[Rfam]
Nucleotides: 086
Stems, first nucleotide, its partner, number of pairs: 012079007021070002032062001036058001038056005
Number, partner (000 for none) and nucleotide at each position: 001000g002000c003000u004000a005000c006000a007000u008000u009000c010000a011000g012079u013078g014077c015076c016075g017074c018073c019000u020000u021070g022069u023000c024000u025000u026000u027000u028000u029000a030000a031000u032062g033000u034000c035000u036058u037000g038056u039055c040054c041053u042052u043000u044000u045000u046000a047000u048000a049000u050000g051000u052042a053041a054040g055039g056038a057000u058036g059000g060000u061000u062032c063000u064000g065000u066000u067000u068000u069022a070021c071000u072000u073018g074017g075016u076015g077014g078013c079012a080000g081000a082000a083000a084000u085000c086000u